[Rfam]
RNA: Nitrogen stress-induced RNA 1
Organism: Calothrix sp. PCC 6303
RNA sequence: UGGUAGAUGCACCCUGAUAACCCACUCCCUUAGCCGAUUGCCAUCAGCUGAGGGAUUUUUUU
Numbered sequence: 001u002g003g004u005a006g007a008u009g010c011a012c013c014c015u016g017a018u019a020a021c022c023c024a025c026u027c028c029c030u031u032a033g034c035c036g037a038u039u040g041c042c043a044u045c046a047g048c049u050g051a052g053g054g055a056u057u058u059u060u061u062u
Stems, first nucleotide, its partner, number of pairs: 002013003027054008036045002